This 82-nucleotide sequence from Acidovorax sp. Leaf160 belongs to the Rfam family "SucA RNA motif". Taxonomically the source falls in Acidovorax (Bacteria, Pseudomonadati, Pseudomonadota, Betaproteobacteria). A reference for the family is Weinberg et al. (2007), "Identification of 22 candidate structured RNAs in bacteria using the CMfinder comparative genomics pipeline", Nucleic Acids Res. Pairs were carried over by alignment from the consensus structure, which is taken from published work. Its family is annotated with regulation of translation in the Gene Ontology.
RNA sequence: UCGCAUCCGCCAACCGGUUCAGCCGUGUCGCGGAAGGUUUACCAACCAGCUAACGUUUCCCUCAGGGAGACAGAGGUCAGCG
Numbered sequence: 001u002c003g004c005a006u007c008c009g010c011c012a013a014c015c016g017g018u019u020c021a022g023c024c025g026u027g028u029c030g031c032g033g034a035a036g037g038u039u040u041a042c043c044a045a046c047c048a049g050c051u052a053a054c055g056u057u058u059c060c061c062u063c064a065g066g067g068a069g070a071c072a073g074a075g076g077u078c079a080g081c082g
Stems, first nucleotide, its partner, number of pairs: 002082003006034005015025004036047004049077003055071007